[Rfam]
mir-203 microRNA precursor family: an 80-nucleotide sequence from Megalops atlanticus. The literature on the family includes a 2005 paper in Genes Dev by Chen et al., "The developmental miRNA profiles of zebrafish as determined by small RNA cloning". The family has 32 seed sequences and 1,049 matches in Rfam 15.1. A search with the family's covariance model found it, with a score of 69 bits. Taxonomically the source falls in Megalops (Eukaryota, Metazoa, Gnathostomata, Megalopidae).
RNA sequence: ACCACCCUGAUCAAGUGGUCCUAAACAUUUCACAAUUUUGGUAAAGAACUGUUGAACUGUUUAGAACCACUCCACCAGAG
Numbered sequence: 001a002c003c004a005c006c007c008u009g010a011u012c013a014a015g016u017g018g019u020c021c022u023a024a025a026c027a028u029u030u031c032a033c034a035a036u037u038u039u040g041g042u043a044a045a046g047a048a049c050u051g052u053u054g055a056a057c058u059g060u061u062u063a064g065a066a067c068c069a070c071u072c073c074a075c076c077a078g079a080g
Base pairs, nucleotide, nucleotide: 014071015070016069017068018067019066021064022063024061025060026059027058029056030055031054032053